[Rfam]
RNA sequence: GGAUCGCGGCGGGGCCGCCUCAAGUGUCCGCCGCUCAUCUGCCCCCGCUCCGGGGGA
Numbered sequence: 001g002g003a004u005c006g007c008g009g010c011g012g013g014g015c016c017g018c019c020u021c022a023a024g025u026g027u028c029c030g031c032c033g034c035u036c037a038u039c040u041g042c043c044c045c046c047g048c049u050c051c052g053g054g055g056g057a
Base pairs, nucleotide, nucleotide: 006034007033008032009031010030011029012028014027015026017025018024042056043055044054045053046052
Shown here is a 57-nucleotide sequence from Pyrobaculum sp. OCT_11, a member of the family "Pyrobaculum asRNA3".
From the family's description: Binds to the 3'-end of the tpi gene (triose-phosphate-isomerse). The tpi mRNA has a conserved structural element located close to the stop codon. Binding of the asR3 may be able to compete against the formation of the tpi element structure and this may modulate the function of this highly conserved element.
Lineage of the source: Archaea > Thermoproteota > Thermoprotei > Thermoproteaceae > Pyrobaculum.